[Rfam]
RNA sequence: AGUAUCCUGAAAUGUUCGAUAACUCUUGUUAUUUUGAACCUACAGAUACUUUAAACGGGAUUCCUACAUCGCCUUAUCGCUGUCAAGCCCCCACUCGAAAGAGGAUUGGAGGGGAAGGCAAAAGUAAGGUUGCGGUCACCCACCUAGCUUUGCUAGGAGUCAAAGUACAAGAACCGGCAUUUUGGGGAUUUA
Numbered sequence: 001a002g003u004a005u006c007c008u009g010a011a012a013u014g015u016u017c018g019a020u021a022a023c024u025c026u027u028g029u030u031a032u033u034u035u036g037a038a039c040c041u042a043c044a045g046a047u048a049c050u051u052u053a054a055a056c057g058g059g060a061u062u063c064c065u066a067c068a069u070c071g072c073c074u075u076a077u078c079g080c081u082g083u084c085a086a087g088c089c090c091c092c093a094c095u096c097g098a099a100a101g102a103g104g105a106u107u108g109g110a111g112g113g114g115a116a117g118g119c120a121a122a123a124g125u126a127a128g129g130u131u132g133c134g135g136u137c138a139c140c141c142a143c144c145u146a147g148c149u150u151u152g153c154u155a156g157g158a159g160u161c162a163a164a165g166u167a168c169a170a171g172a173a174c175c176g177g178c179a180u181u182u183u184g185g186g187g188a189u190u191u192a
Stems, first nucleotide, its partner, number of pairs: 002190001005187011017176002031166003035162003039157002057141003063135002068131001071130007083118002088114004
Rfam assigns this 192-nucleotide RNA from Kineothrix alysoides to the family "6S / SsrS RNA".
About the family: E. coli 6S RNA was the first non coding RNA to be sequenced, but its function was unknown until recently. It consists of 184 nucleotides that fold into an extended hairpin structure with a large single-stranded internal bulge.
Rfam 15.1 lists 5,006 matches to the family in 4,638 species.
It scores 69 bits against the family's covariance model.
The source organism's lineage runs through Bacteria, Bacillota, Clostridia, Lachnospiraceae and Kineothrix.